[Rfam]
RNA sequence: CUGUGUGAAUGUUGUUCAGCACCAGGGACAGAUGUGUUUAUUUAUGUUUGAAUGGUGUUCAGUGCCAGGGACAGAUGUGUUUGCUU
Numbered sequence: 001c002u003g004u005g006u007g008a009a010u011g012u013u014g015u016u017c018a019g020c021a022c023c024a025g026g027g028a029c030a031g032a033u034g035u036g037u038u039u040a041u042u043u044a045u046g047u048u049u050g051a052a053u054g055g056u057g058u059u060c061a062g063u064g065c066c067a068g069g070g071a072c073a074g075a076u077g078u079g080u081u082u083g084c085u086u
Stems, first nucleotide, its partner, number of pairs: 001074004010067002013064004018059007026047001028045001030043005
Overview:
A member of the RNA family "mir-2060 microRNA precursor family" from Branchiostoma floridae, 86 nucleotides long. The organism belongs to Branchiostoma, within Eukaryota. A search with the family's covariance model found it, with a score of 61 bits.